[Rfam]
RNA sequence: AACACGGGCUGCUCAAUAGUCAGUGUAGAUCCUGUACCACACGCAGCAGCUACAUCUGGCUACUGGGUCUCCAAGGUUCUCC
Dot-bracket structure: ............(((.((.(((((((((...((((..........)))))))))).))).)).)))................